[Rfam]
Shown here is a 75-nucleotide RNA from Sphingomonas xanthus, a member of the family "Makes More Granules Regulator RNA (mmgR)". NCBI's taxonomy places the organism under Bacteria, Alphaproteobacteria, Sphingomonadales, Sphingomonadaceae, Sphingomonas.
RNA sequence: CGAUAUUGCCUUUCGAGGCAUCCUCUCCUGAGACUUCCGGCCGGGCGGCGACGCCCGGCCUUUUUUUCUUGUCAA
Dot-bracket structure: .......((((....))))...................(((((((((....)))))))))...............
Numbered sequence: 001c002g003a004u005a006u007u008g009c010c011u012u013u014c015g016a017g018g019c020a021u022c023c024u025c026u027c028c029u030g031a032g033a034c035u036u037c038c039g040g041c042c043g044g045g046c047g048g049c050g051a052c053g054c055c056c057g058g059c060c061u062u063u064u065u066u067u068c069u070u071g072u073c074a075a
Stems, first nucleotide, its partner, number of pairs: 008019004039060009
A reference for the family is Ceizel Borella et al. (2016), "Expression of the Sinorhizobium meliloti small RNA gene mmgR is controlled by the nitrogen source", FEMS Microbiol Lett.